[Rfam]
RNA: Fluoride riboswitch aptamer (crcB RNA motif)
Organism: Dissulfurispira thermophila
RNA sequence: UAUAAUACAGGCGAUGGAGUUCGCCUUUAACUGCUGAGCUAUAAAAGCUUGGCUGAUGACUCCUACUCUCAA
Numbered sequence: 001u002a003u004a005a006u007a008c009a010g011g012c013g014a015u016g017g018a019g020u021u022c023g024c025c026u027u028u029a030a031c032u033g034c035u036g037a038g039c040u041a042u043a044a045a046a047g048c049u050u051g052g053c054u055g056a057u058g059a060c061u062c063c064u065a066c067u068c069u070c071a072a
Base pairs, nucleotide, nucleotide: 010025011024012023013022016063017062018061019060020059021058033053034052035051036050037049038048039047040046